RNA: Small nucleolar RNA Z161/Z228
RNA sequence: GGGCCUAAUGAUGAGAAUAUGUAAUUUAUCUCACAACGGUCUGCUGAGAAUUCUUUGAUGUGACAUAUAUUCUCUGAAGCCC
Numbered sequence: 001g002g003g004c005c006u007a008a009u010g011a012u013g014a015g016a017a018u019a020u021g022u023a024a025u026u027u028a029u030c031u032c033a034c035a036a037c038g039g040u041c042u043g044c045u046g047a048g049a050a051u052u053c054u055u056u057g058a059u060g061u062g063a064c065a066u067a068u069a070u071u072c073u074c075u076g077a078a079g080c081c082c
Stems, first nucleotide, its partner, number of pairs: 001082004048056003